The record is a 74-nucleotide sequence from Caldithrix abyssi, which matches "tRNA" in Rfam. About the family: Transfer RNA (tRNA) molecules are approximately 80 nucleotides in length. Their secondary structure includes four short double-helical elements and three loops (D, anti-codon, and T loops). Further hydrogen bonds mediate the characteristic L-shaped molecular structure. tRNAs have two regions of fundamental functional importance: the anti-codon, which is responsible for specific mRNA codon recognition, and the 3' end, to which the tRNAs corresponding amino acid is attached (by aminoacyl-tRNA synthetases). tRNAs cope with the degeneracy of the genetic code in two manners: having more than one tRNA (with a specific anti-codon) for a particular amino acid; and 'wobble' base-pairing, i.e. permitting non-standard base-pairing at the 3rd anti-codon position. The organism belongs to Caldithrix abyssi, within Bacteria. The family's RNA type in Rfam is transfer RNA.
[Rfam]
RNA sequence: GGGGCGGUAGCUCAGUUGGUUAGAGCGCUACGUUGACAUCGUAGAGGUCGGGAGUUCGAAUCCCCCCCGUCCCA
Number, nucleotide and partner (000 for none) at each position: 001g073002g072003g071004g070005c069006g068007g067008u000009a000010g026011c025012u024013c023014a000015g000016u000017u000018g000019g000020u000021u000022a000023g013024a012025g011026c010027g000028c044029u043030a042031c041032g040033u000034u000035g000036a000037c000038a000039u000040c032041g031042u030043a029044g028045a000046g000047g000048u000049c000050g066051g065052g064053a000054g062055u000056u000057c000058g000059a000060a000061u000062c054063c000064c052065c051066c050067c007068c006069g005070u004071c003072c002073c001074a000